[Rfam]
RNA: Small nucleolar RNA Z122
RNA sequence: UUUGGGAAAUGAUGACAAGCUACUUAUCUUUCAAGGGCAGCUGCUAUGCUGAACUUGUUAUUUGCACGUCAGUCUGAUCCCUUA
Numbered sequence: 001u002u003u004g005g006g007a008a009a010u011g012a013u014g015a016c017a018a019g020c021u022a023c024u025u026a027u028c029u030u031u032c033a034a035g036g037g038c039a040g041c042u043g044c045u046a047u048g049c050u051g052a053a054c055u056u057g058u059u060a061u062u063u064g065c066a067c068g069u070c071a072g073u074c075u076g077a078u079c080c081c082u083u084a
Stems, first nucleotide, its partner, number of pairs: 001084001004081004